[Rfam]
RNA sequence: UGUCGGUCCCCUCGCAAUGUGAAGUUGUGAAUCCCGCCAGGCCCGAAAGGGAGCAACGGCAGCAGCGGAAUUGUGUGCUGGGUGUGGCUGGCAUGA
Numbered sequence: 001u002g003u004c005g006g007u008c009c010c011c012u013c014g015c016a017a018u019g020u021g022a023a024g025u026u027g028u029g030a031a032u033c034c035c036g037c038c039a040g041g042c043c044c045g046a047a048a049g050g051g052a053g054c055a056a057c058g059g060c061a062g063c064a065g066c067g068g069a070a071u072u073g074u075g076u077g078c079u080g081g082g083u084g085u086g087g088c089u090g091g092c093a094u095g096a
Base pairs, nucleotide, nucleotide: 004090005089006088007087008086010082011081012080014078015075017074018073019072024066025065026064027063028062034059035058036057042051043050044049
Annotation: The record is a 96-nucleotide RNA from Cycloclasticus sp. symbiont of Poecilosclerida sp. M, which matches "Bacterial small signal recognition particle RNA" in Rfam. A search with the family's covariance model found it, with a score of 59 bits. A reference for the family is Rosenblad et al. (2009), "Kinship in the SRP RNA family", RNA Biol. The family's consensus secondary structure is taken from published work. By type it is a non-coding RNA gene. Lineage of the source: Bacteria > Pseudomonadati > Pseudomonadota > Gammaproteobacteria > Cycloclasticus.